[Rfam]
RNA sequence: AACGCGCCACAACGGCUUCCUGACGUGGCGCUUAUUUUAUAUUUGGAGCA
Numbered sequence: 001a002a003c004g005c006g007c008c009a010c011a012a013c014g015g016c017u018u019c020c021u022g023a024c025g026u027g028g029c030g031c032u033u034a035u036u037u038u039a040u041a042u043u044u045g046g047a048g049c050a
Base pairs, nucleotide, nucleotide: 004031005030006029007028008027009026010025013022014021015049016048017047019046020045